U11 spliceosomal RNA: a 131-nucleotide RNA sequence from Turnix velox. NCBI's taxonomy places the organism under Eukaryota, Gnathostomata, Neognathae, Charadriiformes, Turnix.

[Rfam]
RNA sequence: AAAAAGGGCUUCUGCCGUGCGUGGCACGGGGCGGGCUUCUCGGUCACUCCCCGCGGAAUCGACAUCAAGAGAUUUCGGAAGCACAAUUUUUUCUGUGGGGGAGGCUGGUAACCGCUUGUUCUGGCGCCCCG
Numbered sequence: 001a002a003a004a005a006g007g008g009c010u011u012c013u014g015c016c017g018u019g020c021g022u023g024g025c026a027c028g029g030g031g032c033g034g035g036c037u038u039c040u041c042g043g044u045c046a047c048u049c050c051c052c053g054c055g056g057a058a059u060c061g062a063c064a065u066c067a068a069g070a071g072a073u074u075u076c077g078g079a080a081g082c083a084c085a086a087u088u089u090u091u092u093c094u095g096u097g098g099g100g101g102a103g104g105c106u107g108g109u110a111a112c113c114g115c116u117u118g119u120u121c122u123g124g125c126g127c128c129c130c131g
Base pairs, nucleotide, nucleotide: 008082009081010080011079012078013026014025015024016023017022027053028052029051030050031049033047035045036042054077055076056075057074058073059072060071099129100128101127104125105124106123107122108121110120111119112118